A member of the RNA family "Small nucleolar RNA U2-19" from Heterocephalus glaber, 80 nucleotides long. Rfam links the family to the GO terms nucleolus and RNA processing. For this family Rfam cites "Guide RNAs with 5' Caps and Novel Box C/D snoRNA-like Domains for Modification of snRNAs in Metazoa" (Tycowski et al., Curr Biol, 2004). It is annotated as a C/D-box small nucleolar RNA. The base pairs follow the family's consensus structure, which is taken from published work. It scores 88 bits against the family's covariance model.

RNA sequence: GAUCAAGGGCGAAAACAGCCAAAUCUGAGCAUCAGAAGACCUUCCAGUCUCCCUGAUGCAUGGUUUAUGUAGUUCUGGGA
Numbered sequence: 001g002a003u004c005a006a007g008g009g010c011g012a013a014a015a016c017a018g019c020c021a022a023a024u025c026u027g028a029g030c031a032u033c034a035g036a037a038g039a040c041c042u043u044c045c046a047g048u049c050u051c052c053c054u055g056a057u058g059c060a061u062g063g064u065u066u067a068u069g070u071a072g073u074u075c076u077g078g079g080a
Stems, first nucleotide, its partner, number of pairs: 029059005037050004